[Rfam]
FMN riboswitch aptamer (RFN element): a 143-nucleotide RNA sequence from Parathalassolituus penaei. The source organism's lineage runs through Bacteria, Pseudomonadati, Pseudomonadota, Oceanospirillales and Parathalassolituus.

RNA sequence: AUUCGUUCUCGGGGCGGGGUGCAAUUCCCCACCGGCGGUAACAGCUAUGGCUGAAGCCCGCGAGCGCCUGCCGAUGGCAGGGACAAGCAGAUCCGGUGUGACUCCGGAGCCGACGGUUACAGUCCGGAUGAAAGAGAGCGUGU
Numbered sequence: 001a002u003u004c005g006u007u008c009u010c011g012g013g014g015c016g017g018g019g020u021g022c023a024a025u026u027c028c029c030c031a032c033c034g035g036c037g038g039u040a041a042c043a044g045c046u047a048u049g050g051c052u053g054a055a056g057c058c059c060g061c062g063a064g065c066g067c068c069u070g071c072c073g074a075u076g077g078c079a080g081g082g083a084c085a086a087g088c089a090g091a092u093c094c095g096g097u098g099u100g101a102c103u104c105c106g107g108a109g110c111c112g113a114c115g116g117u118u119a120c121a122g123u124c125c126g127g128a129u130g131a132a133a134g135a136g137a138g139c140g141u142g143u
Base pairs, nucleotide, nucleotide: 004140005139006138007137008136009135010134017029018028019027031123032122033112034111035061036060037059038058056110057109064088065087092108093107094106095105096104114126115125116124
Dot-bracket structure: ...(((((((......(((.......))).[[((((((.................[[))))..((.....................))...(((((.......)))))]])).(((.....]]))).......)))))))...